The record is a 146-nucleotide RNA sequence from Pseudomonas jinjuensis, which matches "Pseudomonas sRNA P14" in Rfam. The organism belongs to Pseudomonas, within Bacteria. On this family, see Livny et al., Nucleic Acids Res 2006: "Identification of 17 Pseudomonas aeruginosa sRNAs and prediction of sRNA-encoding genes in 10 diverse pathogens using the bioinformatic tool sRNAPredict2".
RNA sequence: CUGGACAGUUUUUGUGCAAGUCUCGGACUUGCACUGGCAACUCCUGUUCAUACAUGAAAAAAAAGUGCCGUACUUGCGCUCAGUCGGUUUACUUACUAAAAGUAAUGGGUACUAUGUAGUCCGGCUAAUUUCCCAGUGAUGGGAGA
Number, nucleotide and partner (000 for none) at each position: 001c000002u000003g000004g000005a000006c000007a000008g000009u000010u000011u000012u000013u000014g079015u078016g000017c000018a075019a074020g073021u072022c000023u070024c000025g069026g068027a000028c000029u000030u000031g000032c000033a000034c000035u000036g000037g000038c000039a000040a000041c000042u000043c000044c000045u000046g000047u000048u000049c000050a000051u000052a000053c000054a000055u000056g000057a000058a000059a000060a000061a000062a000063a000064a000065g000066u000067g000068c026069c025070g023071u000072a021073c020074u019075u018076g000077c000078g015079c014080u000081c000082a000083g125084u124085c123086g000087g121088u000089u000090u118091a117092c116093u000094u114095a113096c000097u111098a110099a000100a000101a106102g000103u000104a000105a000106u101107g000108g000109g000110u098111a097112c000113u095114a094115u000116g092117u091118a090119g000120u000121c087122c000123g085124g084125c083126u000127a000128a000129u146130u145131u144132c143133c142134c141135a000136g000137u000138g000139a000140u000141g134142g133143g132144a131145g130146a129